The family of this 73-nucleotide RNA sequence from Dryoscopus gambensis is "mir-1744 microRNA precursor family".
RNA sequence: GACACCCAGUGCUCCUCUGUUGAACUCAAGACCAGAACCGGUGUUGGCUUCAACAGGAGCAAGACUCAGCCCU
Numbered sequence: 001g002a003c004a005c006c007c008a009g010u011g012c013u014c015c016u017c018u019g020u021u022g023a024a025c026u027c028a029a030g031a032c033c034a035g036a037a038c039c040g041g042u043g044u045u046g047g048c049u050u051c052a053a054c055a056g057g058a059g060c061a062a063g064a065c066u067c068a069g070c071c072c073u
Base pairs, nucleotide, nucleotide: 005069008066009065010064013061015059016058017057018055019054020053021052022051023050024049026047027046028045029044031042032041033040

The organism belongs to Dryoscopus, within Eukaryota. Rfam 15.1 lists 249 matches to the family in 247 species. The match comes from Rfam's covariance-model search (77 bits).